The record is a 195-nucleotide sequence from Tatumella morbirosei, which matches "Lysine riboswitch aptamer" in Rfam.
Its family is annotated with lysine biosynthetic process in the Gene Ontology.
[Rfam]
RNA sequence: UAGACCAGAAGAGGCGCGUCACCCAGGCAGUAUGUCAGAGGAACCGUAUCCAUUGACGACAUACCAUGGGGAGUGACGCCGAGGCUGCAAACAUGCGGUGUGUUUGUCUGUCGACUACAGGGGCUGAAUCCUCUGGGUUGUCACUGUCGUAGCGUUUAUAAUGAACGUUUAUCAAGGUGGGGCGCUUCUGGCUGA
Numbered sequence: 001u002a003g004a005c006c007a008g009a010a011g012a013g014g015c016g017c018g019u020c021a022c023c024c025a026g027g028c029a030g031u032a033u034g035u036c037a038g039a040g041g042a043a044c045c046g047u048a049u050c051c052a053u054u055g056a057c058g059a060c061a062u063a064c065c066a067u068g069g070g071g072a073g074u075g076a077c078g079c080c081g082a083g084g085c086u087g088c089a090a091a092c093a094u095g096c097g098g099u100g101u102g103u104u105u106g107u108c109u110g111u112c113g114a115c116u117a118c119a120g121g122g123g124c125u126g127a128a129u130c131c132u133c134u135g136g137g138u139u140g141u142c143a144c145u146g147u148c149g150u151a152g153c154g155u156u157u158a159u160a161a162u163g164a165a166c167g168u169u170u171a172u173c174a175a176g177g178u179g180g181g182g183c184g185c186u187u188c189u190g191g192c193u194g195a
Stems, first nucleotide, its partner, number of pairs: 006190006016079007024071001030064007083112003087107007113139004118135006141180005147174001
Rfam's curators write: Riboswitches are metabolite binding domains within certain messenger RNAs that serve as precision sensors for their corresponding targets. The organism belongs to Tatumella, within Bacteria.